[Rfam]
RNA sequence: GCGAGGCCCGAGAUGGGCUCGCCCCAUGGGCGCCGGCCACCCGGUGUCCGGCGUCCCUUGUAGUCACGUUGCUCAUCGGAGGAUGUGGUUAUGAGGA
Numbered sequence: 001g002c003g004a005g006g007c008c009c010g011a012g013a014u015g016g017g018c019u020c021g022c023c024c025c026a027u028g029g030g031c032g033c034c035g036g037c038c039a040c041c042c043g044g045u046g047u048c049c050g051g052c053g054u055c056c057c058u059u060g061u062a063g064u065c066a067c068g069u070u071g072c073u074c075a076u077c078g079g080a081g082g083a084u085g086u087g088g089u090u091a092u093g094a095g096g097a
Stems, first nucleotide, its partner, number of pairs: 001022005007017002029055002033050001035048003057095006064088007072081003
RNA: Repression of heat shock gene expression (ROSE) element